Rfam assigns this 47-nucleotide RNA from Streptomyces lucensis to the family "L31-Actinobacteria ribosomal protein leader". Taxonomically the source falls in Streptomyces lucensis (Bacteria, Actinomycetes, Kitasatosporales, Streptomyces). Pairs were carried over by alignment from the consensus structure, which is taken from published work. Its Rfam clan is "Ribosomal Protein L31 Leader clan". It is annotated as a cis-regulatory leader. The match comes from Rfam's covariance-model search (61 bits).
RNA sequence: UCGGCUCCGGUUCACGCCCCCGUAUCCCGCGGUGGCGACCCGGCGCC
Numbered sequence: 001u002c003g004g005c006u007c008c009g010g011u012u013c014a015c016g017c018c019c020c021c022g023u024a025u026c027c028c029g030c031g032g033u034g035g036c037g038a039c040c041c042g043g044c045g046c047c
Stems, first nucleotide, its partner, number of pairs: 003047003007043004015037004020032004